[Rfam]
RNA sequence: CACACACGGGAUUGGGCUUUGCAGGGAGAAAUCCUGCCUCAGCCUCCGGUGGCGAUUAAUCGCCUCAGCCCGUGGAGGUUCAACCGGAAAAGGAAAAUA
Numbered sequence: 001c002a003c004a005c006a007c008g009g010g011a012u013u014g015g016g017c018u019u020u021g022c023a024g025g026g027a028g029a030a031a032u033c034c035u036g037c038c039u040c041a042g043c044c045u046c047c048g049g050u051g052g053c054g055a056u057u058a059a060u061c062g063c064c065u066c067a068g069c070c071c072g073u074g075g076a077g078g079u080u081c082a083a084c085c086g087g088a089a090a091a092g093g094a095a096a097a098u099a
Stems, first nucleotide, its partner, number of pairs: 001077001003075001005074006014044002022036002025034001051064005

Description: This 99-nucleotide RNA from Brucella gallinifaecis belongs to the Rfam family "rpsB sRNA". A search with the family's covariance model found it, with a score of 57 bits. The source organism's lineage runs through Bacteria, Pseudomonadati, Alphaproteobacteria, Brucellaceae and Brucella.